[Rfam]
RNA sequence: AACGCAGGCAGCCUCUGCUGAUGACCCUUCUUCCUGAGUGGCUCUGGUGAUGAGCAAACUGAGCCUCUAAGAAGUUGACUGAAGGGGCUGCUUCCUC
Dot-bracket structure: ......(((((((((....................................................................))))))))).....

Rfam assigns this 97-nucleotide sequence from Bos taurus to the family "Small nucleolar RNA SNORD125". The family's RNA type in Rfam is C/D-box small nucleolar RNA. The literature on the family includes a 2006 paper in Nucleic Acids Res by Yang et al., "snoSeeker: an advanced computational package for screening of guide and orphan snoRNA genes in the human genome". Rfam's curators put it in the seed alignment. Its Rfam clan is "SNORD61 clan".